[Rfam]
RNA sequence: CUGGUUAAAGGGCAAACUAGCUGAAAGGCUAGGACGCAAAGUCAAACAGACCUAAAGAACGAAAGUUCUAUGGUGGCUGGAUUACCAAG
Numbered sequence: 001c002u003g004g005u006u007a008a009a010g011g012g013c014a015a016a017c018u019a020g021c022u023g024a025a026a027g028g029c030u031a032g033g034a035c036g037c038a039a040a041g042u043c044a045a046a047c048a049g050a051c052c053u054a055a056a057g058a059a060c061g062a063a064a065g066u067u068c069u070a071u072g073g074u075g076g077c078u079g080g081a082u083u084a085c086c087a088a089g
Base pairs, nucleotide, nucleotide: 012037013036017032018031019030020029021028022027040083041082042081043080047079048078049077050074051073052072057068058067059066060065
A member of the RNA family "c-di-GMP-I riboswitch aptamer" from Andreesenia angusta, 89 nucleotides long. Pairs were carried over by alignment from the consensus structure, which is taken from published work. From the family's description: GEMM was predicted in a large-scale screen for bacterial structured RNA regulatory elements.